[Rfam]
The family of this 70-nucleotide RNA from Luteitalea sp. is "Fluoride riboswitch aptamer (crcB RNA motif)". The match comes from Rfam's covariance-model search (40 bits).

RNA sequence: AUGAGAGCUGGCGGUGGGGUCCGCCAUAACCGUCGCGUCGCCCGACGCGGCCAAUGACUCCUACAGCAGC
Dot-bracket structure: .........[[[[..((((((]]]]......((((((((....))))))))....)))))).........